[Rfam]
RNA sequence: GUGAAGUUGUUCACAUACAAACAUAUACCCCCUUUGUUUAACGUGAAAAAUUUCCCCAUCCCCUUUGUUCGUAUGAAUGAAAAAGCCUUGCAAACUGUUGAUUUGCAAGGCUUUU
Numbered sequence: 001g002u003g004a005a006g007u008u009g010u011u012c013a014c015a016u017a018c019a020a021a022c023a024u025a026u027a028c029c030c031c032c033u034u035u036g037u038u039u040a041a042c043g044u045g046a047a048a049a050a051u052u053u054c055c056c057c058a059u060c061c062c063c064u065u066u067g068u069u070c071g072u073a074u075g076a077a078u079g080a081a082a083a084a085g086c087c088u089u090g091c092a093a094a095c096u097g098u099u100g101a102u103u104u105g106c107a108a109g110g111c112u113u114u115u
Stems, first nucleotide, its partner, number of pairs: 003054006011046004019039005069080001084112011
The family of this 115-nucleotide RNA sequence from Bacillus sp. V59.32b is "RNA Staph. aureus E (RoxS)". The base pairs follow the family's consensus structure, which is taken from published work. Rfam's curators write: It was shown to be regulated by the presence of nitric oxide (NO). In Bacillus subtilis it controls expression of genes with functions related to oxidative stress and oxidation-reduction reactions and it was renamed RoxS (for related to oxidative stress). Rfam classes the family as a small RNA. On this family, see Geissmann et al., Nucleic Acids Res 2009: "A search for small noncoding RNAs in Staphylococcus aureus reveals a conserved sequence motif for regulation". Rfam links the family to the GO term regulation of translational initiation. The source organism's lineage runs through Bacteria, Bacillati, Bacilli, Caryophanales and Bacillus.